[Rfam]
RNA sequence: UCUAUGUCCUCUCUAAUGCUUUGUUAUGUCUUGAAUCGAUUAACAAAGCCUCGCUUGUGGACGAUAUAAAUGCUUGUUUUAUUAUCCUAGCUUUUGAAGUAACUUUUAUUUUAUAUAGCUCGAGAAACGUAAAACUACAAGC
Numbered sequence: 001u002c003u004a005u006g007u008c009c010u011c012u013c014u015a016a017u018g019c020u021u022u023g024u025u026a027u028g029u030c031u032u033g034a035a036u037c038g039a040u041u042a043a044c045a046a047a048g049c050c051u052c053g054c055u056u057g058u059g060g061a062c063g064a065u066a067u068a069a070a071u072g073c074u075u076g077u078u079u080u081a082u083u084a085u086c087c088u089a090g091c092u093u094u095u096g097a098a099g100u101a102a103c104u105u106u107u108a109u110u111u112u113a114u115a116u117a118g119c120u121c122g123a124g125a126a127a128c129g130u131a132a133a134a135c136u137a138c139a140a141g142c
Stems, first nucleotide, its partner, number of pairs: 005063005019048008027039001076135007087124002090121001

The family of this 142-nucleotide RNA sequence from Musca domestica is "Small nucleolar RNA psi28S-1192". Rfam describes the family as follows. psi28S-1192 is a member of the H/ACA class of snoRNA. This family is responsible for guiding the modification of uridine 1192 to pseudouridine in Drosophila 28S rRNA. Rfam links the family to the GO terms RNA processing and nucleolus. Rfam 15.1 lists 81 matches to the family in 36 species. The family's RNA type in Rfam is H/ACA-box small nucleolar RNA. It scores 68 bits against the family's covariance model.